[Rfam]
RNA sequence: CGGUCCUUUAAUGAAAUCCAGAGAGGUUUCCAAGGACGCGUUAAAAUAAUCAUCCAUCUUGCGGGUUGUUUUAAGGUAGUCUUUGGGCCGGAGCUCAAGGGCUAUUAUUUUU
Numbered sequence: 001c002g003g004u005c006c007u008u009u010a011a012u013g014a015a016a017u018c019c020a021g022a023g024a025g026g027u028u029u030c031c032a033a034g035g036a037c038g039c040g041u042u043a044a045a046a047u048a049a050u051c052a053u054c055c056a057u058c059u060u061g062c063g064g065g066u067u068g069u070u071u072u073a074a075g076g077u078a079g080u081c082u083u084u085g086g087g088c089c090g091g092a093g094c095u096c097a098a099g100g101g102c103u104a105u106u107a108u109u110u111u112u
Stems, first nucleotide, its partner, number of pairs: 003037006013030006042073010054061001075106013
The family of this 112-nucleotide RNA sequence from Limosilactobacillus mucosae is "PyrR binding site". From the family's description: This family represents the PyrR binding site and terminator structure. This RNA structure is found upstream of a variety of genes involved in pyrimidine biosynthesis and transport. The alignment also includes a portion of the antiterminator structure. It is annotated as a cis-regulatory element. The source organism's lineage runs through Bacteria, Bacillati, Bacillota, Lactobacillales and Limosilactobacillus mucosae. Its family is annotated with pyrimidine nucleobase biosynthetic process and pyrimidine nucleobase transport in the Gene Ontology.